A member of the RNA family "Group I catalytic intron" from Clostridium pasteurianum, 441 nucleotides long. Lineage of the source: Bacteria > Bacillati > Clostridia > Clostridium > Clostridium pasteurianum. The family has 12 seed sequences and 5,602 matches in Rfam 15.1. The match comes from Rfam's covariance-model search (70 bits).
RNA sequence: GAUAGUUGAUUAUUUCAGGGUCUCUUAAAGGGUAAUCUUUAAGCACACAUUGGGUGAAUUGCUGGAACUUCCUUAAGCUGUUUCUCUACAACGAAGUUCGAAAGGACAGGCGUGAAGGAUUAAAAAGCAAACAGAUUGGAUAAUCAGCAGCCAAGCUCCUGUACCGAAAGGUUGGAGAAGGUUCAACGACUAAGACGAACGGGUUAAACAGUUAAGAGUUAAAAAUGAAGAGUGAAAGGUGAAUGAAGAAAUUCAAUGAAUUGAAUUCUAACAAUAAAUAUUAACUCUUAAUUCAUAACUUUUAAUUGCAAGUCUAUGAGGUCUGUAGGGAUGAGGUUUCCCGAAGUGCCCAACCCCGAAACAGAGAACAAAGUAUAAAUAAUAAAGUACAAAUAUCUCUGUUGGGUGAAGAUAUAGUCUGGCGAUGAUUGAAAAAUCACU
Numbered sequence: 001g002a003u004a005g006u007u008g009a010u011u012a013u014u015u016c017a018g019g020g021u022c023u024c025u026u027a028a029a030g031g032g033u034a035a036u037c038u039u040u041a042a043g044c045a046c047a048c049a050u051u052g053g054g055u056g057a058a059u060u061g062c063u064g065g066a067a068c069u070u071c072c073u074u075a076a077g078c079u080g081u082u083u084c085u086c087u088a089c090a091a092c093g094a095a096g097u098u099c100g101a102a103a104g105g106a107c108a109g110g111c112g113u114g115a116a117g118g119a120u121u122a123a124a125a126a127g128c129a130a131a132c133a134g135a136u137u138g139g140a141u142a143a144u145c146a147g148c149a150g151c152c153a154a155g156c157u158c159c160u161g162u163a164c165c166g167a168a169a170g171g172u173u174g175g176a177g178a179a180g181g182u183u184c185a186a187c188g189a190c191u192a193a194g195a196c197g198a199a200c201g202g203g204u205u206a207a208a209c210a211g212u213u214a215a216g217a218g219u220u221a222a223a224a225a226u227g228a229a230g231a232g233u234g235a236a237a238g239g240u241g242a243a244u245g246a247a248g249a250a251a252u253u254c255a256a257u258g259a260a261u262u263g264a265a266u267u268c269u270a271a272c273a274a275u276a277a278a279u280a281u282u283a284a285c286u287c288u289u290a291a292u293u294c295a296u297a298a299c300u301u302u303u304a305a306u307u308g309c310a311a312g313u314c315u316a317u318g319a320g321g322u323c324u325g326u327a328g329g330g331a332u333g334a335g336g337u338u339u340c341c342c343g344a345a346g347u348g349c350c351c352a353a354c355c356c357c358g359a360a361a362c363a364g365a366g367a368a369c370a371a372a373g374u375a376u377a378a379a380u381a382a383u384a385a386a387g388u389a390c391a392a393a394u395a396u397c398u399c400u401g402u403u404g405g406g407u408g409a410a411g412a413u414a415u416a417g418u419c420u421g422g423c424g425a426u427g428a429u430u431g432a433a434a435a436a437u438c439a440c441u
Base pairs, nucleotide, nucleotide: 005025008022009021010020011019013017029038030037031036050353051352052351053350055348056347060149061148062147063146064145065144070140071139072138150182151181157175158174163172164171165170186420188419189418190417191416192415356406357405360403361402362401363400364399365398366397426439427438428437429436430435